The family of this 106-nucleotide RNA from Fictibacillus macauensis is "Purine riboswitch aptamer". Rfam links the family to the GO term purine nucleobase biosynthetic process. A search with the family's covariance model found it, with a score of 72 bits. Taxonomically the source falls in Fictibacillus macauensis (Bacteria, Bacillati, Fictibacillaceae, Fictibacillus).
[Rfam]
RNA sequence: UUAUCCUAUAAAAAAAUUCCUUGUAUAAGAUCAGUAAAAAGAUCGGUCUGAUUGUCUCUACCUGGCGGCCGAAAAUUGCCAGACUACAGGGAAGUGUGUUGUACAU
Number, nucleotide and partner (000 for none) at each position: 001u000002u000003a000004u000005c000006c000007u000008a000009u000010a000011a000012a000013a000014a000015a000016a000017u000018u092019c091020c090021u089022u088023g087024u086025a085026u000027a000028a000029g053030a052031u051032c050033a049034g048035u000036a000037a000038a000039a000040a000041g000042a000043u000044c000045g000046g000047u000048c034049u033050g032051a031052u030053u029054g000055u000056c000057u000058c000059u000060a000061c000062c082063u081064g080065g079066c078067g077068g076069c000070c000071g000072a000073a000074a000075a000076u068077u067078g066079c065080c064081a063082g062083a000084c000085u025086a024087c023088a022089g021090g020091g019092a018093a000094g000095u000096g000097u000098g000099u000100u000101g000102u000103a000104c000105a000106u000